This 114-nucleotide RNA from Sinocyclocheilus grahami belongs to the Rfam family "Potassium channel RNA editing signal". Its family is annotated with adenosine to inosine editing in the Gene Ontology.

RNA sequence: CUGGGCUAUGGAGACAUGUAUCCAGAGACAUGGUCUGGUAUGUUAGUGGGUGCCCUGUGCGCCCUAGCGGGCGUGCUGACCAUCGCCAUGCCUGUGCCCGUCAUUGUAAACAAC
Numbered sequence: 001c002u003g004g005g006c007u008a009u010g011g012a013g014a015c016a017u018g019u020a021u022c023c024a025g026a027g028a029c030a031u032g033g034u035c036u037g038g039u040a041u042g043u044u045a046g047u048g049g050g051u052g053c054c055c056u057g058u059g060c061g062c063c064c065u066a067g068c069g070g071g072c073g074u075g076c077u078g079a080c081c082a083u084c085g086c087c088a089u090g091c092c093u094g095u096g097c098c099c100g101u102c103a104u105u106g107u108a109a110a111c112a113a114c
Base pairs, nucleotide, nucleotide: 002113004111007108008107009106010105011104013102014101015100018097019096020095021094037077038076039075040074049063050062051061